[Rfam]
RNA sequence: GUUGCUUCUUGUGGUGAACUCCCUGUCAAUUGGUUGGGGCUGUUCAAGUUUCCGAAACAUAGAUUACUAAUUGCCAGUAUUAAACAGCGCUGUGCAUACUUUUUGCUUACACUGUGUUACCUGUAUCCUGGUACAUGU
Dot-bracket structure: ..((.(((......(((((.((((...........))))..))))).......))).)).............(((((.(......(((.(.(((...............))).).))).......).)))))......
Numbered sequence: 001g002u003u004g005c006u007u008c009u010u011g012u013g014g015u016g017a018a019c020u021c022c023c024u025g026u027c028a029a030u031u032g033g034u035u036g037g038g039g040c041u042g043u044u045c046a047a048g049u050u051u052c053c054g055a056a057a058c059a060u061a062g063a064u065u066a067c068u069a070a071u072u073g074c075c076a077g078u079a080u081u082a083a084a085c086a087g088c089g090c091u092g093u094g095c096a097u098a099c100u101u102u103u104u105g106c107u108u109a110c111a112c113u114g115u116g117u118u119a120c121c122u123g124u125a126u127c128c129u130g131g132u133a134c135a136u137g138u
Stems, first nucleotide, its partner, number of pairs: 003059002006056003015046005021039004073132005079126001086118003090114001092112003
Record summary:
Rfam assigns this 138-nucleotide RNA from Rosa chinensis to the family "small nucleolar RNA snoR137". Its family is annotated with RNA processing and nucleolus in the Gene Ontology. The source organism's lineage runs through Eukaryota, Spermatophyta, Magnoliopsida, Mesangiospermae and Rosa. Rfam classes the family as an H/ACA-box small nucleolar RNA. A reference for the family is Chen and Wu (2009), "Mining small RNA sequencing data: a new approach to identify small nucleolar RNAs in Arabidopsis", Nucleic Acids Res.